[Rfam]
RNA sequence: AGGCAGCCCCCUUUUUGAUAAUCGAUGGAAAGGGAGGUGUUAAUCAGCUCGUAAAAUGGAUUCGUUUACGCUCUUCAGAUUUGCUGAAAUAUACUUACAUCUUGGAAGCUGGUCUAGUAAGCUUAAACACAAU
Numbered sequence: 001a002g003g004c005a006g007c008c009c010c011c012u013u014u015u016u017g018a019u020a021a022u023c024g025a026u027g028g029a030a031a032g033g034g035a036g037g038u039g040u041u042a043a044u045c046a047g048c049u050c051g052u053a054a055a056a057u058g059g060a061u062u063c064g065u066u067u068a069c070g071c072u073c074u075u076c077a078g079a080u081u082u083g084c085u086g087a088a089a090u091a092u093a094c095u096u097a098c099a100u101c102u103u104g105g106a107a108g109c110u111g112g113u114c115u116a117g118u119a120a121g122c123u124u125a126a127a128c129a130c131a132a133u
Stems, first nucleotide, its partner, number of pairs: 002041004007037002009034009065127003070122003077115005083109003089100002
Shown here is a 133-nucleotide RNA sequence from Solanum lycopersicum, a member of the family "Small nucleolar RNA snoR77". The match comes from Rfam's covariance-model search (103 bits). It is annotated as an H/ACA-box small nucleolar RNA. Taxonomically the source falls in Solanum subgen. Lycopersicon (Eukaryota, Embryophyta, Euphyllophyta, eudicotyledons). Rfam links the family to the GO terms nucleolus and RNA processing.